[Rfam]
RNA sequence: UGCAGGCAUGCGCGGGUGACAGCUAGGCCAGUGUAGGCUGGCAGUGCCGCCAUUGUGACCACCUCAGCCGUGGCGGCAUGGGAUCCUAGCUCCCGGGGCCUGCACGAUG
Number, nucleotide and partner (000 for none) at each position: 001u104002g103003c102004a101005g100006g099007c098008a000009u000010g000011c096012g000013c095014g094015g093016g092017u000018g000019a000020c000021a091022g090023c089024u088025a087026g086027g042028c041029c040030a039031g038032u037033g000034u000035a000036g000037g032038c031039u030040g029041g028042c027043a000044g000045u078046g077047c076048c075049g074050c073051c072052a071053u070054u000055g000056u000057g000058a000059c000060c000061a000062c000063c000064u000065c000066a000067g000068c000069c000070g053071u052072g051073g050074c049075g048076g047077c046078a045079u000080g000081g000082g000083a000084u000085c000086c026087u025088a024089g023090c022091u021092c016093c015094c014095g013096g011097g000098g007099c006100c005101u004102g003103c002104a001105c000106g000107a000108u000109g000
RNA: DUF3800-VII RNA